Rfam assigns this 160-nucleotide RNA from Photorhabdus laumondii to the family "STAXI RNA". The family has 43 seed sequences and 130 matches in Rfam 15.1. It is annotated as a small RNA.

RNA sequence: UGUUGUUUUCGGACAACGGCCAAUGUCAGACGAGUCUGAGACUGACGCCUUUGGGUGACUCGUCAUAAAACCAUUGUAACCUGAGAGAUGGUGCCUUUGGGCGGUACACCCGUUUAUCCUUUGAAAACGGGUAUCACUGAUUACAGUGAUGAAGGUGCAU
Numbered sequence: 001u002g003u004u005g006u007u008u009u010c011g012g013a014c015a016a017c018g019g020c021c022a023a024u025g026u027c028a029g030a031c032g033a034g035u036c037u038g039a040g041a042c043u044g045a046c047g048c049c050u051u052u053g054g055g056u057g058a059c060u061c062g063u064c065a066u067a068a069a070a071c072c073a074u075u076g077u078a079a080c081c082u083g084a085g086a087g088a089u090g091g092u093g094c095c096u097u098u099g100g101g102c103g104g105u106a107c108a109c110c111c112g113u114u115u116a117u118c119c120u121u122u123g124a125a126a127a128c129g130g131g132u133a134u135c136a137c138u139g140a141u142u143a144c145a146g147u148g149a150u151g152a153a154g155g156u157g158c159a160u
Base pairs, nucleotide, nucleotide: 002017003016004015005014006013007012025046026045027044028043029042031062032061033060034059035058036057047056048055049054070092071091072090073089074088076107077106078105080104081103093102094101095100109131110130111129112128113127118155119154120153121152133150134149135148136147137146138145139144